[Rfam]
RNA sequence: UGUCUCCUCCACCUCGCGGUGGAUUUGGGCCUGUAUCUCAGGAUGCAGGCCCUUUUUU
Numbered sequence: 001u002g003u004c005u006c007c008u009c010c011a012c013c014u015c016g017c018g019g020u021g022g023a024u025u026u027g028g029g030c031c032u033g034u035a036u037c038u039c040a041g042g043a044u045g046c047a048g049g050c051c052c053u054u055u056u057u058u
Stems, first nucleotide, its partner, number of pairs: 008023006028051008
RNA: Betaproteobacteria toxic small RNA
Organism: Allopusillimonas soli